Notes: Rfam assigns this 57-nucleotide sequence from Microvirga vignae to the family "terC RNA". A search with the family's covariance model found it, with a score of 43 bits. The family's consensus secondary structure is taken from published work. The organism belongs to Microvirga, within Bacteria. The family's RNA type in Rfam is cis-regulatory element.

[Rfam]
RNA sequence: UCGGCGACCGGGCCCCUCUGGCAGGUGGAUGAACCCCUGUGAUGUCGGAACCGAUUU
Numbered sequence: 001u002c003g004g005c006g007a008c009c010g011g012g013c014c015c016c017u018c019u020g021g022c023a024g025g026u027g028g029a030u031g032a033a034c035c036c037c038u039g040u041g042a043u044g045u046c047g048g049a050a051c052c053g054a055u056u057u
Base pairs, nucleotide, nucleotide: 004051008048009047010046011045021040022039023038024037025036027035028034